[Rfam]
RNA sequence: AGAGUAAUGUCAAAGUGCUUACAGUGCAGGUAGUGAUAUAAGAACCUACUGCAGUGAAGGCACUUGUAGCAUUAUAUC
Numbered sequence: 001a002g003a004g005u006a007a008u009g010u011c012a013a014a015g016u017g018c019u020u021a022c023a024g025u026g027c028a029g030g031u032a033g034u035g036a037u038a039u040a041a042g043a044a045c046c047u048a049c050u051g052c053a054g055u056g057a058a059g060g061c062a063c064u065u066g067u068a069g070c071a072u073u074a075u076a077u078c
Base pairs, nucleotide, nucleotide: 004075005074006073007072009070010069013065014064015063016062017061018060019059020058022056023055025053026052027051029050030049031048032047033046